[Rfam]
RNA sequence: CGCGUCGCGGAAUCCCGCGACGUAAAAGAGUGAAGACCUCCGGGAAGACCCCUCCCAACCCCUCCAGCCUCCCCCUCACGGGCCCGUCACCCGCUCGGGUGAAUUGGUCCAACUGGGCUGGAUUUGGGGGCGGUUGGCUGGCAUAUGCUCACGCUGAGUGCACGCCGCACUCCCCCAGACACAUGUCGGCCCCCAGCCGGGACUCGCAAUCCCGAUCGGGGGGCCUGACCAACGAGGAAGAGGAACGCUUCCUG
Numbered sequence: 001c002g003c004g005u006c007g008c009g010g011a012a013u014c015c016c017g018c019g020a021c022g023u024a025a026a027a028g029a030g031u032g033a034a035g036a037c038c039u040c041c042g043g044g045a046a047g048a049c050c051c052c053u054c055c056c057a058a059c060c061c062c063u064c065c066a067g068c069c070u071c072c073c074c075c076u077c078a079c080g081g082g083c084c085c086g087u088c089a090c091c092c093g094c095u096c097g098g099g100u101g102a103a104u105u106g107g108u109c110c111a112a113c114u115g116g117g118c119u120g121g122a123u124u125u126g127g128g129g130g131c132g133g134u135u136g137g138c139u140g141g142c143a144u145a146u147g148c149u150c151a152c153g154c155u156g157a158g159u160g161c162a163c164g165c166c167g168c169a170c171u172c173c174c175c176c177a178g179a180c181a182c183a184u185g186u187c188g189g190c191c192c193c194c195a196g197c198c199g200g201g202a203c204u205c206g207c208a209a210u211c212c213c214g215a216u217c218g219g220g221g222g223g224c225c226u227g228a229c230c231a232a233c234g235a236g237g238a239a240g241a242g243g244a245a246c247g248c249u250u251c252c253u254g
Stems, first nucleotide, its partner, number of pairs: 007233001010230001017075001019073001087102006117159002119151003188225005194219001196217001199213004236252005
The record is a 254-nucleotide sequence from Streptomyces filamentosus, which matches "Streptomyces sRNA 4677" in Rfam. Rfam classes the family as a small RNA. Rfam describes the family as follows. Located in the intergenic region between anti-sigma factor SCO4677 gene and a putative regulatory protein gene SCO4676. scr4677 expression requires the SCO4677 activity and scr4677 sRNA itself seem to affect the levels of the SCO4676-associated transcripts. The source organism's lineage runs through Bacteria, Bacillati, Actinomycetota, Streptomycetaceae and Streptomyces. A search with the family's covariance model found it, with a score of 92 bits.